[Rfam]
RNA: Pseudomonas sRNA P26
Organism: Candidatus Arsenophonus lipoptenae
RNA sequence: UACUUUGACUUGGCAGUCUAAUUACUAAUUAUAGGCUGACAGCUGGUGAUUUUUAGUCACCAGCUU
Numbered sequence: 001u002a003c004u005u006u007g008a009c010u011u012g013g014c015a016g017u018c019u020a021a022u023u024a025c026u027a028a029u030u031a032u033a034g035g036c037u038g039a040c041a042g043c044u045g046g047u048g049a050u051u052u053u054u055a056g057u058c059a060c061c062a063g064c065u066u
Stems, first nucleotide, its partner, number of pairs: 014038005023028001041065010